[Rfam]
RNA sequence: UAAGGCUGAGGUAGUAGAUUGAAUAGUUGUGGGGUUUAGAUCCUCCCUCUGAGAUAACUAUACAGUCUACUGUCUUUCCUGA
Numbered sequence: 001u002a003a004g005g006c007u008g009a010g011g012u013a014g015u016a017g018a019u020u021g022a023a024u025a026g027u028u029g030u031g032g033g034g035u036u037u038a039g040a041u042c043c044u045c046c047c048u049c050u051g052a053g054a055u056a057a058c059u060a061u062a063c064a065g066u067c068u069a070c071u072g073u074c075u076u077u078c079c080u081g082a
Stems, first nucleotide, its partner, number of pairs: 001082001003080003008076014023061005034045001046053001
The record is an 82-nucleotide RNA sequence from Sparus aurata, which matches "let-7 microRNA precursor family" in Rfam. The base pairs follow the family's consensus structure, which was predicted with RNAalifold. About the family: This family represents the microRNAs (miRNA) let-7 and mir-98. let-7 was identified from a study of developmental timing in C. elegans, and was later shown to be part of a much larger class of non-coding RNAs termed miRNAs.